Bacterial RNase P class A: a 418-nucleotide RNA sequence from Thermonema lapsum.
RNA sequence: CGGGCAAGCUGGCUUACCGCUGCUUGGCGAAAAGCACAAGUAGAGGAAAGUCCGGGCAGCAUAGAGCAGCGUACUUCCUAACAGGAAGGCUCCUGCCUGAUGAGGGUAGGGGACAGACAGUGCCACAGAAAACAAACCGCCGAUGGCUCCUGCGCAAGCGGAGUACAGGCAAGGGUGAAAAGGUGGGGUAAGAGCCCACCGCUCCGGUGGUGACAUGCGGAGGCACGGUAAACCUUACGCGCUGAAAGACCAAAUAGGCUGGCAAGUACCUGUUCAUGAGAAGGUACUAAGGGUGGCUCGCCCGACGCCAGUGGGUAGGUCGUUGGAGCUUGGCAGCGAUGCCAAGCCUAGAUAAAUGGUAAGCGCCCUUCUUAUUAGAUGAAGGGAACAGAACCCGGCUUACAGGCUUGCCCGCUCC
Number, nucleotide and partner (000 for none) at each position: 001c414002g413003g412004g411005c410006a409007a408008g407009c406010u405011g403012g364013c363014u362015u361016a360017c359018c358019g000020c043021u042022g041023c040024u039025u038026g037027g000028c000029g000030a000031a000032a000033a000034g000035c000036a000037c026038a025039a024040g023041u022042a021043g020044a000045g000046g000047a000048a401049a400050g399051u000052c398053c397054g396055g395056g394057c244058a243059g242060c241061a000062u000063a000064g299065a298066g297067c296068a000069g240070c239071g238072u237073a236074c088075u087076u086077c085078c084079u000080a000081a000082c000083a000084g078085g077086a076087a075088g074089g114090c112091u111092c110093c109094u108095g107096c106097c105098u104099g000100a000101u000102g000103a000104g098105g097106g096107u095108a094109g093110g092111g091112g090113a000114c089115a235116g234117a000118c000119a000120g233121u232122g229123c228124c227125a000126c000127a000128g000129a000130a000131a000132a000133c000134a000135a000136a000137c174138c173139g170140c169141c168142g000143a000144u167145g166146g164147c163148u162149c161150c160151u000152g000153c000154g000155c000156a000157a000158g000159c000160g150161g149162a148163g147164u146165a000166c145167a144168g141169g140170c139171a000172a000173g138174g137175g000176u000177g000178a000179a000180a000181a000182g200183g199184u198185g197186g196187g195188g000189u000190a000191a000192g000193a000194g000195c187196c186197c185198a184199c183200c182201g224202c222203u221204c220205c219206g218207g216208u215209g214210g000211u000212g000213a000214c209215a208216u207217g000218c206219g205220g204221a203222g202223g000224c201225a000226c000227g124228g123229u122230a000231a000232a121233c120234c116235u115236u073237a072238c071239g070240c069241g060242c059243u058244g057245a000246a000247a000248g321249a320250c319251c318252a000253a000254a000255u000256a000257g000258g312259c311260u310261g309262g308263c307264a000265a000266g000267u000268a000269c000270c000271u000272g000273u000274u000275c000276a000277u000278g000279a000280g000281a000282a000283g000284g000285u000286a000287c000288u000289a000290a000291g303292g302293g301294u300295g000296g067297c066298u065299c064300g294301c293302c292303c291304g000305a000306c000307g263308c262309c261310a260311g259312u258313g000314g000315g000316u000317a000318g251319g250320u249321c248322g000323u000324u000325g000326g000327a000328g347329c346330u345331u344332g343333g342334c341335a340336g000337c000338g000339a000340u335341g334342c333343c332344a331345a330346g329347c328348c000349u000350a000351g000352a000353u000354a000355a000356a000357u000358g018359g017360u016361a015362a014363g013364c012365g000366c000367c000368c000369u000370u000371c000372u000373u000374a000375u000376u000377a000378g000379a000380u000381g000382a000383a000384g000385g000386g000387a000388a000389c000390a000391g000392a000393a000394c056395c055396c054397g053398g052399c050400u049401u048402a000403c011404a000405g010406g009407c008408u007409u006410g005411c004412c003413c002414g001415c000416u000417c000418c000

It is annotated as a ribozyme.
Clan: RNaseP clan.
Ribonuclease P (RNase P) is a ubiquitous endoribonuclease, found in archaea, bacteria and eukarya as well as chloroplasts and mitochondria.
Rfam links the family to the GO terms dimeric ribonuclease P complex, tRNA processing and ribonuclease P activity.